[Rfam]
RNA sequence: GCUGGCAUAAUGAUGAAAUCUUUGCCGUUUACCCAUCUGACUUUUUUGAUGUGUAUCUUUUGAAUCUGAAAUGCCAGU
Numbered sequence: 001g002c003u004g005g006c007a008u009a010a011u012g013a014u015g016a017a018a019u020c021u022u023u024g025c026c027g028u029u030u031a032c033c034c035a036u037c038u039g040a041c042u043u044u045u046u047u048g049a050u051g052u053g054u055a056u057c058u059u060u061u062g063a064a065u066c067u068g069a070a071a072u073g074c075c076a077g078u
Stems, first nucleotide, its partner, number of pairs: 001078007
Small nucleolar RNA SNORD87: a 78-nucleotide RNA from Grus americana.
It is annotated as a C/D-box small nucleolar RNA.
Its family is annotated with nucleolus and RNA processing in the Gene Ontology.
On this family, see Huttenhofer et al., EMBO J 2001: "RNomics: an experimental approach that identifies 201 candidates for novel, small, non-messenger RNAs in mouse".
NCBI's taxonomy places the organism under Eukaryota, Metazoa, Chordata, Sauropsida, Grus.